Shown here is an 84-nucleotide RNA, a member of the family "Small nucleolar RNA U61".
RNA sequence: GAGCUGUGAGGAAAAAAUCGUGUGCCAGAGAUGGUUAAUCCAUCGCUGACGGUAAUACACAACCCUCUAAGAAGUUCUGAGCUU
Number, nucleotide and partner (000 for none) at each position: 001g084002a083003g082004c081005u000006g000007u000008g000009a000010g000011g000012a000013a000014a000015a000016a000017a000018u000019c000020g000021u000022g000023u000024g000025c000026c000027a000028g000029a000030g000031a000032u000033g000034g000035u000036u000037a000038a000039u000040c000041c000042a000043u000044c000045g000046c000047u000048g000049a000050c000051g000052g000053u000054a000055a000056u000057a000058c000059a000060c000061a000062a000063c000064c000065c000066u000067c000068u000069a000070a000071g000072a000073a000074g000075u000076u000077c000078u000079g000080a000081g004082c003083u002084u001
The base pairs follow the family's consensus structure, which was predicted with WAR.
Rfam classes the family as a C/D-box small nucleolar RNA.